[Rfam]
Source information:
The record is a 96-nucleotide RNA sequence from Handroanthus impetiginosus, which matches "MIR396 microRNA precursor family" in Rfam. Rfam links the family to the GO terms RISC complex and miRNA-mediated post-transcriptional gene silencing. Pairs were carried over by alignment from the consensus structure, which was predicted with WAR. The organism belongs to Handroanthus, within Eukaryota. The literature on the family includes a 2004 paper in Mol Cell by Jones-Rhoades and Bartel, "Computational identification of plant microRNAs and their targets, including a stress-induced miRNA".
RNA sequence: UGUCAUACUUUUCCACAGCUUUCUUGAACUUCUUUUGUGAUAUUUUCAAGAUUUGUACAUUCAGAAGUUCAAGAAAGCUGUGGGAAGACAUGGCAA
Numbered sequence: 001u002g003u004c005a006u007a008c009u010u011u012u013c014c015a016c017a018g019c020u021u022u023c024u025u026g027a028a029c030u031u032c033u034u035u036u037g038u039g040a041u042a043u044u045u046u047c048a049a050g051a052u053u054u055g056u057a058c059a060u061u062c063a064g065a066a067g068u069u070c071a072a073g074a075a076a077g078c079u080g081u082g083g084g085a086a087g088a089c090a091u092g093g094c095a096a
Stems, first nucleotide, its partner, number of pairs: 003093004013083003017079006024072004029067005